[Rfam]
RNA sequence: UUGCAGGAGCCUCCCGGGCUAAUCUGAUAAAAGCACUUGAGGAACUAAGCCCUAAGCUCCUGCUAUAUUAUUGCAGUUUGUGUUGCAGGCUUGCCUUGUUUCUUAGGCUUUUCUGUGUCAAAAAAGCUGCUACAUUA
Numbered sequence: 001u002u003g004c005a006g007g008a009g010c011c012u013c014c015c016g017g018g019c020u021a022a023u024c025u026g027a028u029a030a031a032a033g034c035a036c037u038u039g040a041g042g043a044a045c046u047a048a049g050c051c052c053u054a055a056g057c058u059c060c061u062g063c064u065a066u067a068u069u070a071u072u073g074c075a076g077u078u079u080g081u082g083u084u085g086c087a088g089g090c091u092u093g094c095c096u097u098g099u100u101u102c103u104u105a106g107g108c109u110u111u112u113c114u115g116u117g118u119c120a121a122a123a124a125a126g127c128u129g130c131u132a133c134a135u136u137a
Stems, first nucleotide, its partner, number of pairs: 003063008016052005021046001023043003073130007081120002084117006093108003
Shown here is a 137-nucleotide sequence from Arabis alpina, a member of the family "small nucleolar RNA snoR134". The literature on the family includes a 2009 paper in Nucleic Acids Res by Chen and Wu, "Mining small RNA sequencing data: a new approach to identify small nucleolar RNAs in Arabidopsis". The family has 5 seed sequences and 792 matches in Rfam 15.1. Gene Ontology terms of the family: RNA processing and nucleolus. Taxonomically the source falls in Arabis (Eukaryota, Streptophyta, Mesangiospermae, rosids).